[Rfam]
RNA sequence: GAUGGAUUGAAUCCAAUCCAUUAACUAAAUUUUUUACUUAUGGAUGGAUUGGAUGGAUCCAUUA
Numbered sequence: 001g002a003u004g005g006a007u008u009g010a011a012u013c014c015a016a017u018c019c020a021u022u023a024a025c026u027a028a029a030u031u032u033u034u035u036a037c038u039u040a041u042g043g044a045u046g047g048a049u050u051g052g053a054u055g056g057a058u059c060c061a062u063u064a
Stems, first nucleotide, its partner, number of pairs: 004060005011054012027039002

Shown here is a 64-nucleotide sequence from Trifolium medium, a member of the family "MIR5291 microRNA precursor family".
Its family is annotated with miRNA-mediated post-transcriptional gene silencing and RISC complex in the Gene Ontology.